[Rfam]
RNA: U4 spliceosomal RNA
Organism: Lasiosphaeria miniovina
RNA sequence: AUCCUAGUGCAUGGGUUUUACGUGUAUUGAUGAGGAUUCGUCUGAGAUCACGUUUUUGCUAGUUGAAAACUAUAACCAUGACCGCUCCUGGCUGGCUUCGGCCGGCCAGGGAAUUUUUGGCACACCAUUCUU
Numbered sequence: 001a002u003c004c005u006a007g008u009g010c011a012u013g014g015g016u017u018u019u020a021c022g023u024g025u026a027u028u029g030a031u032g033a034g035g036a037u038u039c040g041u042c043u044g045a046g047a048u049c050a051c052g053u054u055u056u057u058g059c060u061a062g063u064u065g066a067a068a069a070c071u072a073u074a075a076c077c078a079u080g081a082c083c084g085c086u087c088c089u090g091g092c093u094g095g096c097u098u099c100g101g102c103c104g105g106c107c108a109g110g111g112a113a114u115u116u117u118u119g120g121c122a123c124a125c126c127a128u129u130c131u132u
Base pairs, nucleotide, nucleotide: 020053021052022051023050024049026048027047028046034043035042036041086111087110088109089108090107091106092105093104094103095102096101127132